[Rfam]
Shown here is a 65-nucleotide sequence from Tepidibacillus decaturensis, a member of the family "Fluoride riboswitch aptamer (crcB RNA motif)". The organism belongs to Tepidibacillus, within Bacteria.
RNA sequence: UAAAUAAUGGGCGAUGGAGUUCGCCUUAAACUGCCUAAUCAUAGGCUAAUGACUCCUACCAGAAC
Numbered sequence: 001u002a003a004a005u006a007a008u009g010g011g012c013g014a015u016g017g018a019g020u021u022c023g024c025c026u027u028a029a030a031c032u033g034c035c036u037a038a039u040c041a042u043a044g045g046c047u048a049a050u051g052a053c054u055c056c057u058a059c060c061a062g063a064a065c
Stems, first nucleotide, its partner, number of pairs: 010025004016056006033046004

The base pairs follow the family's consensus structure, which is taken from published work.